[Rfam]
RNA sequence: UUGCAGUAGGACUGGGGGCCGUUACACUGUAAGAGAUUGAGUAGCAGAUCUCACAGUGAACCGGUCUCUUUUUUUGCUGCUUU
Numbered sequence: 001u002u003g004c005a006g007u008a009g010g011a012c013u014g015g016g017g018g019c020c021g022u023u024a025c026a027c028u029g030u031a032a033g034a035g036a037u038u039g040a041g042u043a044g045c046a047g048a049u050c051u052c053a054c055a056g057u058g059a060a061c062c063g064g065u066c067u068c069u070u071u072u073u074u075u076g077c078u079g080c081u082u083u
Stems, first nucleotide, its partner, number of pairs: 006077005015068007025058006033052003